Nucleotides: 074
Stems, first nucleotide, its partner, number of pairs: 006069001009066001012063014028047001030045004
Number, partner (000 for none) and nucleotide at each position: 001000c002000u003000c004000a005000g006069g007000g008000g009066g010000u011000g012063g013062g014061g015060g016059u017058c018057c019056c020055u021054c022053a023052g024051c025050c026000c027000a028047g029000a030045u031044u032043g033042c034000c035000a036000g037000a038000g039000g040000g041000u042033g043032c044031a045030g046000g047028c048000c049000a050025g051024g052023c053022u054021g055020a056019g057018g058017g059016a060015c061014c062013c063012c064000a065000c066009u067000g068000g069006u070000g071000c072000a073000c074000g